[Rfam]
RNA sequence: ACGCAUCUUCAGGGCAGGGUGAAAUUCCCGAUCGGCGGUAUAGUCCGCGAGCAUUCGAACGCACAUCAGUGUCGACGAGAAUGUGGGAGCGCAAGCGCUCGUGAACCGGUGUGACUCCGGUACCGACAGUUACAGUCUGGAUGAAAGAAGCAUGCGG
Numbered sequence: 001a002c003g004c005a006u007c008u009u010c011a012g013g014g015c016a017g018g019g020u021g022a023a024a025u026u027c028c029c030g031a032u033c034g035g036c037g038g039u040a041u042a043g044u045c046c047g048c049g050a051g052c053a054u055u056c057g058a059a060c061g062c063a064c065a066u067c068a069g070u071g072u073c074g075a076c077g078a079g080a081a082u083g084u085g086g087g088a089g090c091g092c093a094a095g096c097g098c099u100c101g102u103g104a105a106c107c108g109g110u111g112u113g114a115c116u117c118c119g120g121u122a123c124c125g126a127c128a129g130u131u132a133c134a135g136u137c138u139g140g141a142u143g144a145a146a147g148a149a150g151c152a153u154g155c156g157g
Base pairs, nucleotide, nucleotide: 003155004154005153006152007150008149009148010147017029018028019027031136032135033125034124035048036047037046038045043123044122053099105121106120107119108118109117127139128138129137
RNA: FMN riboswitch aptamer (RFN element)